[Rfam]
RNA sequence: GGGGGUGUACCGGUUUCGACGGGGGUGUGGAGGCGGGAUAAGCGGGCAGCGGCGCCCAACCGCUUUAAUAUGGGCAUCUUUAUAAAUUAAAGAACAACAAUAAACUCGCUUACGCUGCGUAAUUAACGCGGCCGUCCGCCCCGGAAGGACCACGAGCCGGGGUUGGGCGUGACUGAGUGGUGCACGUGUCCGCGGUAAGCUUUGCCCGCGGCAUGUAAAAUGAAGCUACCGGAACCCGGAGAGUGACGGCUUUCGCCGGGGAAAGGGAAUUCUAAAUAACCGUCUGCGCCCGGAGAAAUUCCCGUCAAAGUGCUUUCGGACAGGGGUUCAACUCCCCUCACCUCCACCA
Number, nucleotide and partner (000 for none) at each position: 001g345002g344003g343004g342005g341006u340007g339008u000009a000010c000011c000012g000013g000014u000015u000016u000017c000018g000019a000020c318021g317022g316023g315024g314025g313026u312027g311028u310029g000030g000031a000032g306033g305034c304035g303036g302037g301038a300039u000040a000041a000042g000043c292044g291045g290046g289047c288048a064049g063050c062051g061052g060053c000054g075055c074056c073057c072058a071059a000060c052061c051062g050063c049064u048065u000066u000067a000068a000069u000070a000071u058072g057073g056074g055075c054076a000077u000078c000079u000080u000081u000082a000083u000084a000085a000086a000087u000088u000089a000090a000091a000092g000093a000094a000095c000096a000097a000098c000099a000100a000101u000102a000103a000104a000105c000106u000107c000108g000109c000110u000111u000112a000113c000114g132115c131116u130117g129118c128119g000120u000121a000122a000123u000124u000125a000126a000127c000128g118129c117130g116131g115132c114133c169134g168135u167136c166137c165138g164139c162140c161141c160142c159143g158144g000145a000146a000147g000148g000149a181150c180151c179152a178153c177154g000155a000156g000157c000158c143159g142160g141161g140162g139163u000164u138165g137166g136167g135168c134169g133170u000171g000172a000173c000174u000175g000176a000177g153178u152179g151180g150181u149182g000183c000184a216185c215186g214187u213188g212189u211190c210191c000192g000193c000194g000195g000196u000197a000198a227199g226200c225201u224202u223203u222204g000205c000206c000207c000208g000209c000210g190211g189212c188213a187214u186215g185216u184217a000218a000219a000220a000221u000222g203223a202224a201225g200226c199227u198228a000229c266230c265231g000232g000233a000234a000235c260236c259237c258238g257239g000240a000241g254242a253243g252244u000245g284246a283247c282248g281249g000250c000251u000252u243253u242254c241255g000256c000257c238258g237259g236260g235261g000262a000263a000264a000265g230266g229267g000268a000269a000270u000271u000272c000273u000274a000275a000276a000277u000278a000279a000280c000281c248282g247283u246284c245285u000286g000287c000288g047289c046290c045291c044292g043293g000294a000295g000296a000297a000298a000299u000300u038301c037302c036303c035304g034305u033306c032307a000308a000309a000310g028311u027312g026313c025314u024315u023316u022317c021318g020319g000320a000321c000322a338323g337324g336325g335326g334327u000328u000329c000330a000331a000332c000333u000334c326335c325336c324337c323338u322339c007340a006341c005342c004343u003344c002345c001346a000347c000348c000349a000
RNA: transfer-messenger RNA
Organism: Papillibacter cinnamivorans